Rfam assigns this 47-nucleotide RNA sequence from Trichechus manatus to the family "Exoribonuclease-resistant RNA (xrRNA) plant-infecting virus (class 3)". About the family: Exoribonuclease-resistant RNA (xrRNA) plant-infecting virus (class 3) is a ncRNA that was reported in Plant viruses. It scores 34 bits against the family's covariance model. Rfam links the family to the GO term viral RNA genome replication. NCBI's taxonomy places the organism under Eukaryota, Theria, Afrotheria, Trichechidae, Trichechus manatus.

RNA sequence: AGAUAGCUUGCACAUGUUGGUUGCAAGGUCAGACUUAAAGUCUGAGA
Numbered sequence: 001a002g003a004u005a006g007c008u009u010g011c012a013c014a015u016g017u018u019g020g021u022u023g024c025a026a027g028g029u030c031a032g033a034c035u036u037a038a039a040g041u042c043u044g045a046g047a
Stems, first nucleotide, its partner, number of pairs: 001036002007032002010030001011027001017045004